[Rfam]
RNA: Eukaryotic large subunit ribosomal RNA, nucleotides 2520 to 3115
Organism: Entomortierella parvispora
RNA sequence: CGGGGAAAGAAGACCCUGUUGAGCUUGACUCUAGUUUGACAUUGUGAAAAGACAUAUGGGGUGCAGAAUAAGUGGGAGCUUCGGCGCCAGUGAGAUACCACUACCCGUAUUGUUUUUUUACUUAUUUAAUUAGGUAGAAACGGAAUUCAUUUUCCUUCUUCUAGCUUUAAGGCGGCUUUACGUCGCUGAUCUAGGUUAAAGACAUUGUCAGGUGGGGAGUUUGGCUGGGGCGGCACAUCUGUUAAAAGAUAACGCAGGUGUCCUAAGGGGGACUCAACGAGAACAGAAAUCUCGUGUAGAACAAAAGGGUAAAAGUCCCCUUGAUUUUGAUUUUCAGUGUGAAUACAAACCAUGAAAGUGUGGCCUAUCGAUCCUUUAGUCCCUGGAAAUUUCAGGCUAGAGGUGCCAGAAAAGUUACCACAGGGAUAACUGGCUUGUGGCAGCCAAGCGUUCAUAGCGACGUUGCUUUUUGAUCCUUCGAUGUCGGCUCUUCCUAUCAUACUGAAGCAGAAUUCAGUAAGCGUUGGAUUGUUCACCCACUAAUAGGGAACGUGAGCUGGGUUUAGACCGUCGUGAGACAGGUUAGUUUUACCCUA
Numbered sequence: 001c002g003g004g005g006a007a008a009g010a011a012g013a014c015c016c017u018g019u020u021g022a023g024c025u026u027g028a029c030u031c032u033a034g035u036u037u038g039a040c041a042u043u044g045u046g047a048a049a050a051g052a053c054a055u056a057u058g059g060g061g062u063g064c065a066g067a068a069u070a071a072g073u074g075g076g077a078g079c080u081u082c083g084g085c086g087c088c089a090g091u092g093a094g095a096u097a098c099c100a101c102u103a104c105c106c107g108u109a110u111u112g113u114u115u116u117u118u119u120a121c122u123u124a125u126u127u128a129a130u131u132a133g134g135u136a137g138a139a140a141c142g143g144a145a146u147u148c149a150u151u152u153u154c155c156u157u158c159u160u161c162u163a164g165c166u167u168u169a170a171g172g173c174g175g176c177u178u179u180a181c182g183u184c185g186c187u188g189a190u191c192u193a194g195g196u197u198a199a200a201g202a203c204a205u206u207g208u209c210a211g212g213u214g215g216g217g218a219g220u221u222u223g224g225c226u227g228g229g230g231c232g233g234c235a236c237a238u239c240u241g242u243u244a245a246a247a248g249a250u251a252a253c254g255c256a257g258g259u260g261u262c263c264u265a266a267g268g269g270g271g272a273c274u275c276a277a278c279g280a281g282a283a284c285a286g287a288a289a290u291c292u293c294g295u296g297u298a299g300a301a302c303a304a305a306a307g308g309g310u311a312a313a314a315g316u317c318c319c320c321u322u323g324a325u326u327u328u329g330a331u332u333u334u335c336a337g338u339g340u341g342a343a344u345a346c347a348a349a350c351c352a353u354g355a356a357a358g359u360g361u362g363g364c365c366u367a368u369c370g371a372u373c374c375u376u377u378a379g380u381c382c383c384u385g386g387a388a389a390u391u392u393c394a395g396g397c398u399a400g401a402g403g404u405g406c407c408a409g410a411a412a413a414g415u416u417a418c419c420a421c422a423g424g425g426a427u428a429a430c431u432g433g434c435u436u437g438u439g440g441c442a443g444c445c446a447a448g449c450g451u452u453c454a455u456a457g458c459g460a461c462g463u464u465g466c467u468u469u470u471u472g473a474u475c476c477u478u479c480g481a482u483g484u485c486g487g488c489u490c491u492u493c494c495u496a497u498c499a500u501a502c503u504g505a506a507g508c509a510g511a512a513u514u515c516a517g518u519a520a521g522c523g524u525u526g527g528a529u530u531g532u533u534c535a536c537c538c539a540c541u542a543a544u545a546g547g548g549a550a551c552g553u554g555a556g557c558u559g560g561g562u563u564u565a566g567a568c569c570g571u572c573g574u575g576a577g578a579c580a581g582g583u584u585a586g587u588u589u590u591a592c593c594c595u596a
Stems, first nucleotide, its partner, number of pairs: 003595003007590002015424004020420002022416005028220004035212007044121010054110007071102005078085002125200005135193004142154004171187005223236001224234003237259006262363002268320006274300002277295006301310002325349003330344004351360003374402006382396004433474001435472001437471001439467006448458002485560001486558004490552001491549005498523001501518006525539003529535001566584004570579003